L31-Actinobacteria ribosomal protein leader: a 55-nucleotide RNA. The literature on the family includes a 2020 paper in BMC Microbiol by Eckert and Weinberg, "Discovery of 20 novel ribosomal leader candidates in bacteria and archaea".
[Rfam]
RNA sequence: GCGGUACCGGUUCACGUCCGUCGCGAUAGGCAAGCGGCGCGGCGACCCGGCGACC
Numbered sequence: 001g002c003g004g005u006a007c008c009g010g011u012u013c014a015c016g017u018c019c020g021u022c023g024c025g026a027u028a029g030g031c032a033a034g035c036g037g038c039g040c041g042g043c044g045a046c047c048c049g050g051c052g053a054c055c
Stems, first nucleotide, its partner, number of pairs: 003055003007050004015044004019039006